The record is a 54-nucleotide RNA from [Enterobacter] lignolyticus, which matches "algC RNA" in Rfam. The source organism's lineage runs through Bacteria, Pseudomonadati, Gammaproteobacteria, Enterobacteriaceae and [Enterobacter] lignolyticus. The base pairs follow the family's consensus structure, which is taken from published work. By type it is a cis-regulatory element.

RNA sequence: CCAAUUAUGGCCUCGGCAGCGGGUCAGGGCCGACUGCUGCCUGAAGAAGGGGAU
Numbered sequence: 001c002c003a004a005u006u007a008u009g010g011c012c013u014c015g016g017c018a019g020c021g022g023g024u025c026a027g028g029g030c031c032g033a034c035u036g037c038u039g040c041c042u043g044a045a046g047a048a049g050g051g052g053a054u
Stems, first nucleotide, its partner, number of pairs: 009025005